RNA sequence: GGCCACCUUCGGGGGGCUACAACAUAGGCGGGCAUGACCCGCUGCAAGCAAACGGAAGACAGAAA
Dot-bracket structure: ((((.(((...)))))))........((((((.....))))))......................
A member of the RNA family "L2-Alphaproteobacteria ribosomal protein leader", 65 nucleotides long. The family's RNA type in Rfam is cis-regulatory leader. A reference for the family is Eckert and Weinberg (2020), "Discovery of 20 novel ribosomal leader candidates in bacteria and archaea", BMC Microbiol.